[Rfam]
RNA sequence: GUGCCUACUGAGCUGAAACGCAGUUGCUUUGCUUAAACUGGCUCAGUUCAGCAGGAACAG
Number, nucleotide and partner (000 for none) at each position: 001g058002u057003g000004c055005c054006u053007a000008c051009u050010g049011a048012g047013c046014u045015g044016a043017a000018a000019c000020g000021c040022a039023g038024u037025u000026g000027c000028u000029u000030u000031g000032c000033u000034u000035a000036a000037a024038c023039u022040g021041g000042c000043u016044c015045a014046g013047u012048u011049c010050a009051g008052c000053a006054g005055g004056a000057a002058c001059a000060g000
A member of the RNA family "mir-24 microRNA precursor family" from Ornithorhynchus anatinus, 60 nucleotides long. On this family, see Lagos-Quintana et al., Science 2001: "Identification of novel genes coding for small expressed RNAs". Pairs were carried over by alignment from the consensus structure, which was predicted with RNAalifold. Rfam describes the family as follows. This family represents the microRNA (miRNA) mir-24 family. miRNAs are transcribed as ~70nt precursors (modelled here) and subsequently processed by the Dicer enzyme to give a ~22nt product. In this case the mature sequence comes from the 3' arm of the precursor. The extents of the hairpin precursors are not generally known and are estimated based on hairpin prediction. The products are thought to have regulatory roles through complementarity to mRNA. The involvement of Dicer in miRNA processing suggests a relationship with the phenomenon of RNA interference. miRNAs are numbered based on the sequence of the mature RNA. miR-24 has been identified in human and mouse. It is one of the family's seed sequences.